Shown here is a 92-nucleotide RNA from Oryctolagus cuniculus, a member of the family "Small nucleolar RNA U83B". On this family, see Duga et al., Biochim Biophys Acta 2000: "The intron-containing L3 ribosomal protein gene (RPL3): sequence analysis and identification of U43 and of two novel intronic small nucleolar RNAs". Rfam 15.1 lists 966 matches to the family in 652 species. It is annotated as a C/D-box small nucleolar RNA.

RNA sequence: GCUGUUCAGGGAUGAGGCACGGAAUGAGCGCUGGCCCAGCGCCCGAAUCGCCCUGUGGAACCAUUCCCUGUUGCCUUCCUUCUGAGAACAGU
Dot-bracket structure: (((((..................................................................................)))))